RNA: mir-544 microRNA precursor family
Organism: Odocoileus virginianus
RNA sequence: GUUGCCUGGGGAUCUUGUUAAAAUGCAGAUUCUGAUUCAGCAGGCCAGAAGCAGCAGAGAUUCUGCAUCUCUAACAAGCUCCCUGGUGAUGCUGC
Dot-bracket structure: ..(((...(((..((((((((.(.(((((.(((........................))).))))).).).))))))).)))...))).......